[Rfam]
RNA sequence: GGCUGGCUGGAGUGCAGUGGUGUUUACAACUAAUUGAUCACAAUCAGUUACCAAUUCCUUUGUUCCUGCUCCACUCUCCCUGCUUCAGUUGACUAGCCUGUA
Numbered sequence: 001g002g003c004u005g006g007c008u009g010g011a012g013u014g015c016a017g018u019g020g021u022g023u024u025u026a027c028a029a030c031u032a033a034u035u036g037a038u039c040a041c042a043a044u045c046a047g048u049u050a051c052c053a054a055u056u057c058c059u060u061u062g063u064u065c066c067u068g069c070u071c072c073a074c075u076c077u078c079c080c081u082g083c084u085u086c087a088g089u090u091g092a093c094u095a096g097c098c099u100g101u102a
Stems, first nucleotide, its partner, number of pairs: 001098006008091001010090002014086001016081002019078002022076001028064003032060002
Background: This 102-nucleotide RNA sequence from Aotus nancymaae belongs to the Rfam family "Y RNA". Rfam 15.1 lists 26,986 matches to the family in 650 species. Pairs were carried over by alignment from the consensus structure, which is taken from published work. The family's RNA type in Rfam is non-coding RNA gene. The organism belongs to Aotus, within Eukaryota.